[Rfam]
RNA sequence: CCAAAACUUGCCACUAGUCAUUUUCUAAUUGGUUCUUAGUGUGUUAAAAUUUUAUAAGAACCAAUUAGAAAAUAAUAAGUGGCUAAUUUGGG
Numbered sequence: 001c002c003a004a005a006a007c008u009u010g011c012c013a014c015u016a017g018u019c020a021u022u023u024u025c026u027a028a029u030u031g032g033u034u035c036u037u038a039g040u041g042u043g044u045u046a047a048a049a050u051u052u053u054a055u056a057a058g059a060a061c062c063a064a065u066u067a068g069a070a071a072a073u074a075a076u077a078a079g080u081g082g083c084u085a086a087u088u089u090g091g092g
Base pairs, nucleotide, nucleotide: 002091004089005088006087008085010083011082012081013080014079015078017076018075020073021072022071023070024069025068026067027066028065029064030063031062032061033060034059035058036057037056038055
MIR6288 microRNA precursor family: a 92-nucleotide sequence from Prunus armeniaca. Its family is annotated with RISC complex and miRNA-mediated post-transcriptional gene silencing in the Gene Ontology. NCBI's taxonomy places the organism under Eukaryota, Streptophytina, Embryophyta, Pentapetalae, Prunus.